The record is a 178-nucleotide sequence, which matches "nqrA-II ncRNA motif" in Rfam. Pairs were carried over by alignment from the consensus structure, which is taken from published work. A reference for the family is Narunsky et al. (2024), "The discovery of novel noncoding RNAs in 50 bacterial genomes", Nucleic Acids Res.

RNA sequence: CUAUUUUGUUCGCUGUAUGCGAAGUAACCGAUUUGAGAACUUAAUGCGGUCUUAUUGAUAAGUGGGGGAAUUCUACGUUUAUCAAAUUUGAUUGCGGCUCAAUAGCAGCGGUUGUGAUUAGGAGUUUCCUAAACAACCAUUUUUUUUAACCCAACCAAAAGUAGUGCAAACAAUAUGA
Numbered sequence: 001c002u003a004u005u006u007u008g009u010u011c012g013c014u015g016u017a018u019g020c021g022a023a024g025u026a027a028c029c030g031a032u033u034u035g036a037g038a039a040c041u042u043a044a045u046g047c048g049g050u051c052u053u054a055u056u057g058a059u060a061a062g063u064g065g066g067g068g069a070a071u072u073c074u075a076c077g078u079u080u081a082u083c084a085a086a087u088u089u090g091a092u093u094g095c096g097g098c099u100c101a102a103u104a105g106c107a108g109c110g111g112u113u114g115u116g117a118u119u120a121g122g123a124g125u126u127u128c129c130u131a132a133a134c135a136a137c138c139a140u141u142u143u144u145u146u147u148a149a150c151c152c153a154a155c156c157a158a159a160a161g162u163a164g165u166g167c168a169a170a171c172a173a174u175a176u177g178a
Base pairs, nucleotide, nucleotide: 002026003025004024005023006022007021008020009019012016033102034101035100036099037098045096046095047094048093049092050091052086056084057083058082059081060080061079062078063077064076065072066071108167109166110138111137112136113135114134115133122127142161143160144159145158146157
Dot-bracket structure: .((((((((..(...)..))))))))......(((((.......((((((.(...(((((((((((....))...))))))))).)....)))))).))))).....((((((((......(....).....))))))...(((((..........)))))....))...........